The family of this 61-nucleotide RNA from Petropleomorpha daqingensis is "Actino-pnp RNA". The source organism's lineage runs through Bacteria, Bacillati, Actinomycetes, Geodermatophilaceae and Petropleomorpha. The match comes from Rfam's covariance-model search (66 bits). Rfam classes the family as a cis-regulatory element.

RNA sequence: UCCGGUCCUCGGUAGUGGCUCCCGGGCAUCCCUUUCCCGAGAGCUUCGAUCGAAGACCGGU
Numbered sequence: 001u002c003c004g005g006u007c008c009u010c011g012g013u014a015g016u017g018g019c020u021c022c023c024g025g026g027c028a029u030c031c032c033u034u035u036c037c038c039g040a041g042a043g044c045u046u047c048g049a050u051c052g053a054a055g056a057c058c059g060g061u
Stems, first nucleotide, its partner, number of pairs: 002060006009053005017045005023039004028034001